Rfam assigns this 86-nucleotide RNA sequence from Deinococcus hopiensis to the family "ZMP/ZTP riboswitch aptamer (pfl RNA motif)". The source organism's lineage runs through Bacteria, Thermotogati, Deinococci, Deinococcaceae and Deinococcus hopiensis. The literature on the family includes a 2015 paper in Nat Struct Mol Biol by Jones and Ferre-D'Amare, "Recognition of the bacterial alarmone ZMP through long-distance association of two RNA subdomains".

RNA sequence: UGCGGCGGGGGCGACUGGCGCUGAACGUGGAGCGGACCACGGGGAAGCCCCCAGCACAUCCCGGAUCGCGCGCCUGGGUCGGAGCA
Numbered sequence: 001u002g003c004g005g006c007g008g009g010g011g012c013g014a015c016u017g018g019c020g021c022u023g024a025a026c027g028u029g030g031a032g033c034g035g036a037c038c039a040c041g042g043g044g045a046a047g048c049c050c051c052c053a054g055c056a057c058a059u060c061c062c063g064g065a066u067c068g069c070g071c072g073c074c075u076g077g078g079u080c081g082g083a084g085c086a
Stems, first nucleotide, its partner, number of pairs: 004055001007052006015044002017074005027040004064080004